[Rfam]
Nucleotides: 073
Base pairs, nucleotide, nucleotide: 001071002070003069009060010059011058012057013056022055023054024053030048031047032046036043037042
Number, partner (000 for none) and nucleotide at each position: 001071c002070c003069u004000u005000u006000g007000g008000a009060g010059c011058g012057u013056c014000a015000a016000a017000a018000a019000a020000a021000a022055c023054g024053u025000g026000a027000u028000u029000a030048g031047c032046c033000a034000g035000u036043c037042a038000g039000a040000a041000a042037u043036g044000g045000c046032g047031g048030c049000g050000a051000a052000a053024g054023c055022g056013g057012a058011u059010g060009c061000g062000g063000u064000g065000a066000a067000u068000u069003a070002g071001g072000a073000a